[Rfam]
RNA sequence: AUCUCUUUGCCUUUUGGCUUAGAUCAAGUGUAGUAUCUGUUCUUUUCAGUGUAACAACUGAAAUGACCUCAAUGAGGCUCAUUACCUUUUAAUUUGUUACAAUACACAUUUUUUGGCACCCAAAUAAUAAAAUGGACGGGAAGGGACUUUCCAAGCGGGCUGUUUUCCGCUA
Numbered sequence: 001a002u003c004u005c006u007u008u009g010c011c012u013u014u015u016g017g018c019u020u021a022g023a024u025c026a027a028g029u030g031u032a033g034u035a036u037c038u039g040u041u042c043u044u045u046u047c048a049g050u051g052u053a054a055c056a057a058c059u060g061a062a063a064u065g066a067c068c069u070c071a072a073u074g075a076g077g078c079u080c081a082u083u084a085c086c087u088u089u090u091a092a093u094u095u096g097u098u099a100c101a102a103u104a105c106a107c108a109u110u111u112u113u114u115g116g117c118a119c120c121c122a123a124a125u126a127a128u129a130a131a132a133u134g135g136a137c138g139g140g141a142a143g144g145g146a147c148u149u150u151c152c153a154a155g156c157g158g159g160c161u162g163u164u165u166u167c168c169g170c171u172a
Stems, first nucleotide, its partner, number of pairs: 004023003009018003044063006065080002067077004109127002112124005130165006137157002140152001
The record is a 172-nucleotide sequence from Saccharomyces paradoxus, which matches "U2 spliceosomal RNA" in Rfam. The organism belongs to Saccharomyces paradoxus, within Eukaryota. About the family: U2 is a small nuclear RNA (snRNA) component of the spliceosome (involved in pre-mRNA splicing). Rfam classes the family as a spliceosomal small nuclear RNA. Rfam links the family to the GO terms mRNA branch site recognition, U2 snRNP and pre-mRNA branch point binding. It is one of the family's seed sequences.